[Rfam]
RNA sequence: GAGUUGUUUUACGCAGCAAGAUUAAGCCGUAAGGUGUAGUCGCAGCGAAAGCGAGUCUUAACAGGGCGUAUUAGUUGCGUGAAGCAGACCCGAAACCAGGUGAUCUAUCCAUGGCCAGGGUGAAGCUCCGGUAAAACGGAGUGGAGGCCCGAACCGUUGUAUGUUGAAAAAUGCUCGGAUGAGCUGUGGAUAGGGGUGAAAGGCCAAACAAACCUGGAAAUAGCUGGUU
Numbered sequence: 001g002a003g004u005u006g007u008u009u010u011a012c013g014c015a016g017c018a019a020g021a022u023u024a025a026g027c028c029g030u031a032a033g034g035u036g037u038a039g040u041c042g043c044a045g046c047g048a049a050a051g052c053g054a055g056u057c058u059u060a061a062c063a064g065g066g067c068g069u070a071u072u073a074g075u076u077g078c079g080u081g082a083a084g085c086a087g088a089c090c091c092g093a094a095a096c097c098a099g100g101u102g103a104u105c106u107a108u109c110c111a112u113g114g115c116c117a118g119g120g121u122g123a124a125g126c127u128c129c130g131g132u133a134a135a136a137c138g139g140a141g142u143g144g145a146g147g148c149c150c151g152a153a154c155c156g157u158u159g160u161a162u163g164u165u166g167a168a169a170a171a172u173g174c175u176c177g178g179a180u181g182a183g184c185u186g187u188g189g190a191u192a193g194g195g196g197u198g199a200a201a202g203g204c205c206a207a208a209c210a211a212a213c214c215u216g217g218a219a220a221u222a223g224c225u226g227g228u229u
Stems, first nucleotide, its partner, number of pairs: 005086013020041004026035003045052002055067004089227002092224001096217006105193011116181001118150004125142006154178003159174004195205003
Shown here is a 229-nucleotide part of an RNA from Desulfonema limicola, a member of the family "Bacterial large subunit ribosomal RNA". The family's consensus secondary structure is taken from published work. The literature on the family includes a 2001 paper in Science by Yusupov et al., "Crystal structure of the ribosome at 5.5 A resolution". Gene Ontology terms of the family: ribosome and structural constituent of ribosome. It scores 2970 bits against the family's covariance model. The organism belongs to Desulfonema, within Bacteria.